RNA sequence: AUAAUCAGAUUUCCUCGGCAGUUAACUGCAGCCGGGUUUCUUAAACUUCGGCAGUUAACUGCCAAGGGGCAA
Dot-bracket structure: ...........((.(.(((((((((((((.....................))))))))))))).).))....
This 72-nucleotide sequence from Medicago truncatula belongs to the Rfam family "MIR2629 microRNA precursor family".
Gene Ontology terms of the family: RISC complex and miRNA-mediated post-transcriptional gene silencing.
The source organism's lineage runs through Eukaryota, rosids, Fabales, Fabaceae and Medicago.
A search with the family's covariance model found it, with a score of 63 bits.